[Rfam]
RNA sequence: GCUAUUUAUAAACGCUCUCAGGGCCUUGCAAAAGACCCAGUGAACAAUUUUUGGAGAACCCUGUCCUUUCGAGGUCAGGGUA
Number, nucleotide and partner (000 for none) at each position: 001g000002c000003u000004a000005u000006u000007u000008a000009u000010a000011a000012a000013c000014g000015c000016u000017c000018u000019c000020a000021g038022g037023g036024c000025c034026u033027u032028g000029c000030a000031a000032a027033a026034g025035a000036c023037c022038c021039a000040g000041u000042g000043a000044a000045c000046a000047a000048u000049u000050u000051u000052u000053g000054g000055a000056g000057a000058a081059c080060c079061c078062u077063g076064u000065c074066c073067u072068u000069u000070c000071g000072a067073g066074g065075u000076c063077a062078g061079g060080g059081u058082a000

The family of this 82-nucleotide RNA from Caenorhabditis elegans is "SmY spliceosomal RNA". The family's RNA type in Rfam is spliceosomal small nuclear RNA. Rfam's curators put it in the seed alignment. The source organism's lineage runs through Eukaryota, Metazoa, Bilateria, Nematoda and Caenorhabditis. The literature on the family includes a 2007 paper in RNA by MacMorris et al., "A novel family of C. elegans snRNPs contains proteins associated with trans-splicing".